[Rfam]
RNA sequence: AGGUACAGAAGAGGAGCGCUAACUAGGUAGUAAGUCUGAAGAGUCCAAGCUCUGAUGAUGACUUAUGAGGGAGAUUUGCGCCGAGAUAUUUGAGUAUUUGGAAUUACUCUAUGUCGGUCUAAUGGGCUGAAUCCCUUAGGUUGUCACCUGUUUAUUGGUGGAGAGCUUCUGGUGGU
Numbered sequence: 001a002g003g004u005a006c007a008g009a010a011g012a013g014g015a016g017c018g019c020u021a022a023c024u025a026g027g028u029a030g031u032a033a034g035u036c037u038g039a040a041g042a043g044u045c046c047a048a049g050c051u052c053u054g055a056u057g058a059u060g061a062c063u064u065a066u067g068a069g070g071g072a073g074a075u076u077u078g079c080g081c082c083g084a085g086a087u088a089u090u091u092g093a094g095u096a097u098u099u100g101g102a103a104u105u106a107c108u109c110u111a112u113g114u115c116g117g118u119c120u121a122a123u124g125g126g127c128u129g130a131a132u133c134c135c136u137u138a139g140g141u142u143g144u145c146a147c148c149u150g151u152u153u154a155u156u157g158g159u160g161g162a163g164a165g166c167u168u169c170u171g172g173u174g175g176u
Stems, first nucleotide, its partner, number of pairs: 006171006016081004021076002024073001030066007085115005092109005116142007124135003144161005150155001